[Rfam]
RNA sequence: UUGGGAUAUGGAGAUAUGUAUCCGCAAACCUGGUCUGGUAUGCUGGUGGGUGCCUUAUGCGCCUUGGCUGGUGUGCUCACCAUUGCCAUGCCAGUCCCUGUUAUUGUAAAUAAU
Numbered sequence: 001u002u003g004g005g006a007u008a009u010g011g012a013g014a015u016a017u018g019u020a021u022c023c024g025c026a027a028a029c030c031u032g033g034u035c036u037g038g039u040a041u042g043c044u045g046g047u048g049g050g051u052g053c054c055u056u057a058u059g060c061g062c063c064u065u066g067g068c069u070g071g072u073g074u075g076c077u078c079a080c081c082a083u084u085g086c087c088a089u090g091c092c093a094g095u096c097c098c099u100g101u102u103a104u105u106g107u108a109a110a111u112a113a114u
Stems, first nucleotide, its partner, number of pairs: 002113001004111001007108005013102004018097001020095002037077004049063003
About this RNA
The record is a 114-nucleotide RNA from Xenopus tropicalis, which matches "Potassium channel RNA editing signal" in Rfam. Gene Ontology term of the family: adenosine to inosine editing. A search with the family's covariance model found it, with a score of 94 bits. The source organism's lineage runs through Eukaryota, Opisthokonta, Craniata, Xenopus and Silurana. About the family: This family represents a group of sequences related to the human potassium channel Kv1.1 hairpin element which directs the efficient modification of an adenosine to inosine by an adenosine deaminase acting on RNA (ADAR). The ADAR modification causes an isoleucine/valine recoding event which lies in the ion-conducting pore of the potassium channel. It is thought that this editing event targets the process of fast inactivation and allows a more rapid recovery from inactivation at negative potentials.